[Rfam]
RNA: mir-21 microRNA precursor family
Organism: Takifugu rubripes
RNA sequence: UGUCAAAUAGCUUAUCAGACUGGUGUUGGCUGUUAAGAUUGCAAGGCGACAACAGUCUGUAGGCUGUCUGACA
Numbered sequence: 001u002g003u004c005a006a007a008u009a010g011c012u013u014a015u016c017a018g019a020c021u022g023g024u025g026u027u028g029g030c031u032g033u034u035a036a037g038a039u040u041g042c043a044a045g046g047c048g049a050c051a052a053c054a055g056u057c058u059g060u061a062g063g064c065u066g067u068c069u070g071a072c073a
Base pairs, nucleotide, nucleotide: 008066009065010064011063012062013061014060015059018057019056020055021054022053024051025050026049027048028047030045